Rfam assigns this 125-nucleotide sequence from Psychromonas sp. psych-6C06 to the family "Histidine operon leader". The base pairs follow the family's consensus structure, which is taken from published work. The source organism's lineage runs through Bacteria, Pseudomonadati, Gammaproteobacteria, Psychromonadaceae and Psychromonas. Gene Ontology term of the family: histidine biosynthetic process. By type it is a cis-regulatory leader. From the family's description: At least 6 amino acid operons are known to be regulated by attenuation. In each a leader sequence of 150-200 bp is found upstream of the first gene in the operon.

RNA sequence: AGCACACCAUCAUCAUAUUACCUAAUCUUUCAGGAUUUUUAUUCUUGGAAGAGCUUAUAUGUGCUUCCAGUGGUUAACAACAAAUAUAAACCCUCGGAAGUUCAAUCUCCCGAGGGUUUUUUAGU
Numbered sequence: 001a002g003c004a005c006a007c008c009a010u011c012a013u014c015a016u017a018u019u020a021c022c023u024a025a026u027c028u029u030u031c032a033g034g035a036u037u038u039u040u041a042u043u044c045u046u047g048g049a050a051g052a053g054c055u056u057a058u059a060u061g062u063g064c065u066u067c068c069a070g071u072g073g074u075u076a077a078c079a080a081c082a083a084a085u086a087u088a089a090a091c092c093c094u095c096g097g098a099a100g101u102u103c104a105a106u107c108u109c110c111c112g113a114g115g116g117u118u119u120u121u122u123a124g125u
Stems, first nucleotide, its partner, number of pairs: 009042002012036003019032001044070002047068005086121001088119010099108002